[Rfam]
The record is a 254-nucleotide RNA from Conger conger, which matches "RNase MRP" in Rfam.

RNA sequence: AAGCAUUCUGAAGACCUGUUUGCAAGGCUACCGACUGAGAACCUGGUUUCUCUCACAAUCCCGCCUUGGGGAAAGUCCCCGGACACGUGCCAGAGACGGCCUUGCGUGAUAGCAUGAGACGGUUUGCAAGCUACCAAUAGAGCAAAGAAGUUCUCCGGAACCGAGCUUGGUACGAGCAAAUUGCUUUCGUCAAUGUGCUAGUAAUGCAGGUGGUGUGAAGACAUGAACACAACGGGGCUCAUUCUCAGAAUGCA
Dot-bracket structure: ..(((((((((..((((((...((((((........(((((......)))))..........)))))).....[[.[[[[........(((......)))(..((......))..).(....(((((....(((.....((((......((((....))))...)))).)))...)))))...).....................)))))).((((....)))).........]]]]]].....))))))))).